Small nucleolar RNA snoR2/U65: a 161-nucleotide RNA sequence from Cocos nucifera.
[Rfam]
RNA sequence: GGCCCAAUGCCACGUCUCUGAUAGCCAGAUGCAUUGACCUUGACCAGAGAUGCUAUGAUUGGGCCUAGAUCAAAUCAAGUUUGAUAUUUCGCAAGUUGAUAGGAAUCUGUGGAUUAGAUCUUUAUUGUUCAUCUAUGGAGCCAGUUUAUGCGAUUAUAUUU
Numbered sequence: 001g002g003c004c005c006a007a008u009g010c011c012a013c014g015u016c017u018c019u020g021a022u023a024g025c026c027a028g029a030u031g032c033a034u035u036g037a038c039c040u041u042g043a044c045c046a047g048a049g050a051u052g053c054u055a056u057g058a059u060u061g062g063g064c065c066u067a068g069a070u071c072a073a074a075u076c077a078a079g080u081u082u083g084a085u086a087u088u089u090c091g092c093a094a095g096u097u098g099a100u101a102g103g104a105a106u107c108u109g110u111g112g113a114u115u116a117g118a119u120c121u122u123u124a125u126u127g128u129u130c131a132u133c134u135a136u137g138g139a140g141c142c143a144g145u146u147u148a149u150g151c152g153a154u155u156a157u158a159u160u161u
Base pairs, nucleotide, nucleotide: 002064003063004062005061006060007059008058009056013052014051015050016049017048018047020045022043024038026036027035028034089153090152091151092150093149102142103141107138108137109136111134112133113132114131
The match comes from Rfam's covariance-model search (116 bits). On this family, see Shaw et al., J Cell Sci 1998: "Localization and processing from a polycistronic precursor of novel snoRNAs in maize". It is annotated as an H/ACA-box small nucleolar RNA.